[Rfam]
RNA sequence: UAUAAAUUGUUUUCAAAUGAUGUUCAGAUUUUAUGCUUGCAUAAUAAUCUGAAUAUCAUUUAGAAAAUAUAACGGAAAUGAGCAAGCAGGCUGAUAAGCCGGAUUGCGAAUUUGCGUGGCAAUCGUGAGAUUGCGAGGCAAGGAACGAUUGCCGUUUAUA
Dot-bracket structure: (((((((..((((.(((((((((((((((((((((....))))).))))))))))))))))..))))....(((.((((..((((...((((....))))...))))..)))).)))..(((((((....((((...))))...)))))))..)))))))